The record is a 109-nucleotide RNA, which matches "Plastid-psbA-1 3UTR RNA" in Rfam. Rfam's curators write: Plastid psbA-1 is a non-coding RNA (ncRNA) present in plastids. The base pairs follow the family's consensus structure, which was predicted with LocARNA. The literature on the family includes a 2023 paper in Plant Commun by Richter et al., "Retrograde signaling in plants: A critical review focusing on the GUN pathway and beyond". It is one of the family's seed sequences.
[Rfam]
RNA sequence: UUGAAGUCCCAUCUCUUAAUGGAUAAGACUUUUAACAUAUAGGAAUUUUUGAAGGAAGGAAAGUCAGAAAUACCCAAUAUCUUGAUAAAACAAGAUAUUGGGUAUUUCU
Numbered sequence: 001u002u003g004a005a006g007u008c009c010c011a012u013c014u015c016u017u018a019a020u021g022g023a024u025a026a027g028a029c030u031u032u033u034a035a036c037a038u039a040u041a042g043g044a045a046u047u048u049u050u051g052a053a054g055g056a057a058g059g060a061a062a063g064u065c066a067g068a069a070a071u072a073c074c075c076a077a078u079a080u081c082u083u084g085a086u087a088a089a090a091c092a093a094g095a096u097a098u099u100g101g102g103u104a105u106u107u108c109u
Stems, first nucleotide, its partner, number of pairs: 009022004066109008075100003079096005